[Rfam]
The record is a 73-nucleotide RNA sequence from Theileria equi, which matches "tRNA" in Rfam. A search with the family's covariance model found it, with a score of 69 bits.
RNA sequence: GUGUGUGUAGCGUAAUGGAUAACGCGUCGCCCUCCGGAGGCGAAGACUGUGGGUUCGAGUCCCAUCACACACG
Number, nucleotide and partner (000 for none) at each position: 001g072002u071003g070004u069005g068006u067007g066008u000009a000010g025011c024012g023013u022014a000015a000016u000017g000018g000019a000020u000021a000022a013023c012024g011025c010026g000027u043028c042029g041030c040031c039032c000033u000034c000035c000036g000037g000038a000039g031040g030041c029042g028043a027044a000045g000046a000047c000048u000049g065050u064051g063052g062053g061054u000055u000056c000057g000058a000059g000060u000061c053062c052063c051064a050065u049066c007067a006068c005069a004070c003071a002072c001073g000
The family's consensus secondary structure is taken from published work. Its Rfam clan is "tRNA clan". Lineage of the source: Eukaryota > Sar > Aconoidasida > Theileria > Theileria equi. By type it is a transfer RNA.